[Rfam]
RNA sequence: GAGUUCUGAUCAUUGGCGAGGUUAACUAUUCAAUUAGGAAGCCGAAGGGAAACCGAUUGCCCGCAGUUUUUAAUGAGGGGCAAGGUGUGCUCGCCUGGAGUCAAUGGUGCGGAUACCCGAAGCCGGUCGAUCUAUGCCUGAGCAGGAUGAAGCCUCUCGAAGGGGAGGUGGAGGUCCGAACCAGUGCUGAUGUGCAAAUCGUUUGGAUGACUUGGGUAUAGGGGUGAAAGGCCAAUCUAGGCCGGAAAUAGCUGGUU
Dot-bracket structure: ....(((((((((((((..((((..(((......)))..))))...((....))....((((...(((...)))...))))..((((....))))....))))))))).))))..((.(...((((((...((((((((((((.((((...(((((((....)))))))....))))...((((.((.((........))))))))..).))))))))))).(((.....)))......))))))......).))..
Numbered sequence: 001g002a003g004u005u006c007u008g009a010u011c012a013u014u015g016g017c018g019a020g021g022u023u024a025a026c027u028a029u030u031c032a033a034u035u036a037g038g039a040a041g042c043c044g045a046a047g048g049g050a051a052a053c054c055g056a057u058u059g060c061c062c063g064c065a066g067u068u069u070u071u072a073a074u075g076a077g078g079g080g081c082a083a084g085g086u087g088u089g090c091u092c093g094c095c096u097g098g099a100g101u102c103a104a105u106g107g108u109g110c111g112g113a114u115a116c117c118c119g120a121a122g123c124c125g126g127u128c129g130a131u132c133u134a135u136g137c138c139u140g141a142g143c144a145g146g147a148u149g150a151a152g153c154c155u156c157u158c159g160a161a162g163g164g165g166a167g168g169u170g171g172a173g174g175u176c177c178g179a180a181c182c183a184g185u186g187c188u189g190a191u192g193u194g195c196a197a198a199u200c201g202u203u204u205g206g207a208u209g210a211c212u213u214g215g216g217u218a219u220a221g222g223g224g225u226g227a228a229a230g231g232c233c234a235a236u237c238u239a240g241g242c243c244g245g246a247a248a249u250a251g252c253u254g255g256u257u
Stems, first nucleotide, its partner, number of pairs: 005113004009108009020043004026037003047054002059081004066074003084095004116255002119252001123245006132221011143209001145177004152169007181206004186202002189200002223233003
The family of this 257-nucleotide part of an RNA from Candidatus Methanoplasma termitum is "Archaeal large subunit ribosomal RNA". The source organism's lineage runs through Archaea, Methanobacteriati, Thermoplasmata, Methanomassiliicoccaceae and Candidatus Methanoplasma. The match comes from Rfam's covariance-model search (2722 bits).